[Rfam]
RNA sequence: UCGGCCCACGCCGGCCCCCGGCCGGCUAGGAUUGGCGCCGGCCAUUUCGCUUUCGUGGGUGGCCGACACAGAUCAGUCAGCAGCCGCUGCAACCCCAGGGAG
Numbered sequence: 001u002c003g004g005c006c007c008a009c010g011c012c013g014g015c016c017c018c019c020g021g022c023c024g025g026c027u028a029g030g031a032u033u034g035g036c037g038c039c040g041g042c043c044a045u046u047u048c049g050c051u052u053u054c055g056u057g058g059g060u061g062g063c064c065g066a067c068a069c070a071g072a073u074c075a076g077u078c079a080g081c082a083g084c085c086g087c088u089g090c091a092a093c094c095c096c097a098g099g100g101a102g
Base pairs, nucleotide, nucleotide: 040064041063042062043061044060045059048058078089079088080087081086
This 102-nucleotide sequence from Streptomyces sp. 8K308 belongs to the Rfam family "Streptomyces-metK RNA". It scores 49 bits against the family's covariance model. Taxonomically the source falls in Streptomyces (Bacteria, Bacillati, Actinomycetota, Actinomycetes).